[Rfam]
The family of this 102-nucleotide sequence is "Methylobacterium-1 RNA". It is annotated as a small RNA. Rfam's curators put it in the seed alignment.
RNA sequence: CAAGUUGGAAUGGUGUUUAAAUAUUCCCAACAGGACAAGGGAGAACUUACCCUUACAGAAUAUGAUGGUAAAUGUAUCUGCAUCAUAAUUCUGACCCUAGUU
Number, nucleotide and partner (000 for none) at each position: 001c000002a000003a000004g031005u030006u029007g028008g027009a000010a024011u023012g022013g000014u000015g000016u000017u000018u000019a000020a000021a000022u012023a011024u010025u000026c000027c008028c007029a006030a005031c004032a000033g000034g000035a000036c000037a054038a053039g052040g051041g050042a000043g000044a000045a000046c000047u000048u000049a000050c041051c040052c039053u038054u037055a000056c093057a092058g091059a090060a089061u087062a086063u085064g084065a083066u000067g000068g081069u080070a079071a000072a000073u000074g000075u000076a000077u000078c000079u070080g069081c068082a000083u065084c064085a063086u062087a061088a000089u060090u059091c058092u057093g056094a000095c000096c000097c000098u000099a000100g000101u000102u000